Rfam assigns this 95-nucleotide RNA sequence from Paenibacillus sp. 598K to the family "c-di-GMP-I-GGC riboswitch aptamer". Pairs were carried over by alignment from the consensus structure, which is taken from published work. It scores 62 bits against the family's covariance model.
RNA sequence: CUACAUAUUGGCAAACCUGUCGAAAGGCAGGGACGCAAAGCUAAAGGGUCUACCGUUCCUGUGCAAGGAGCCAACUGACAGCCUGGCUGCCGUCG
Numbered sequence: 001c002u003a004c005a006u007a008u009u010g011g012c013a014a015a016c017c018u019g020u021c022g023a024a025a026g027g028c029a030g031g032g033a034c035g036c037a038a039a040g041c042u043a044a045a046g047g048g049u050c051u052a053c054c055g056u057u058c059c060u061g062u063g064c065a066a067g068g069a070g071c072c073a074a075c076u077g078a079c080a081g082c083c084u085g086g087c088u089g090c091c092g093u094c095g
Stems, first nucleotide, its partner, number of pairs: 001095001011036002016031006034081001039088004045084003048079003